Record summary:
A member of the RNA family "Bacteroidete tryptophan peptide leader RNA" from Maribacter sp. HTCC2170, 117 nucleotides long. The sequence is in the family's curated seed alignment. Rfam classes the family as a cis-regulatory leader. NCBI's taxonomy places the organism under Bacteria, Pseudomonadati, Flavobacteriia, Flavobacteriales, Maribacter. Gene Ontology terms of the family: regulation of gene expression and S-adenosylmethionine metabolic process.
[Rfam]
RNA sequence: UCAUUUCUAUAUUUGAGGCAAUGAAAAACAGAACAAAUAAUACAUGGUGGUGGAGUAACUUACGAAAAACGUCGUGAGCAAAGCAUCAUUGUAGUAAAACUAUAUAAAAGGCUUGUC
Numbered sequence: 001u002c003a004u005u006u007c008u009a010u011a012u013u014u015g016a017g018g019c020a021a022u023g024a025a026a027a028a029c030a031g032a033a034c035a036a037a038u039a040a041u042a043c044a045u046g047g048u049g050g051u052g053g054a055g056u057a058a059c060u061u062a063c064g065a066a067a068a069a070c071g072u073c074g075u076g077a078g079c080a081a082a083g084c085a086u087c088a089u090u091g092u093a094g095u096a097a098a099a100c101u102a103u104a105u106a107a108a109a110g111g112c113u114u115g116u117c
Stems, first nucleotide, its partner, number of pairs: 036101001038099001041096002044092004049087004056081001059078003062072003